[Rfam]
RNA sequence: GCGGGGCUAUGGGGUGCGUCAGGAGACAUAUUCCCCGGGGCCUUACGAUCUCCUAGGGAGCUGUUCCUGGCCAGGUCCGUGGACCUGGACACACGGCGCCCACCUACUUAUGUAGGUUCCCGGGAUCGUCACUCCAACGGCCUUCGUGGCUCCGCG
Numbered sequence: 001g002c003g004g005g006g007c008u009a010u011g012g013g014g015u016g017c018g019u020c021a022g023g024a025g026a027c028a029u030a031u032u033c034c035c036c037g038g039g040g041c042c043u044u045a046c047g048a049u050c051u052c053c054u055a056g057g058g059a060g061c062u063g064u065u066c067c068u069g070g071c072c073a074g075g076u077c078c079g080u081g082g083a084c085c086u087g088g089a090c091a092c093a094c095g096g097c098g099c100c101c102a103c104c105u106a107c108u109u110a111u112g113u114a115g116g117u118u119c120c121c122g123g124g125a126u127c128g129u130c131a132c133u134c135c136a137a138c139g140g141c142c143u144u145c146g147u148g149g150c151u152c153c154g155c156g
Stems, first nucleotide, its partner, number of pairs: 002154010012143004017139003032125004037120006056101003060097005071088005
Background
Rfam assigns this 156-nucleotide RNA sequence from Chelatococcus asaccharovorans to the family "6S / SsrS RNA". The organism belongs to Chelatococcus, within Bacteria.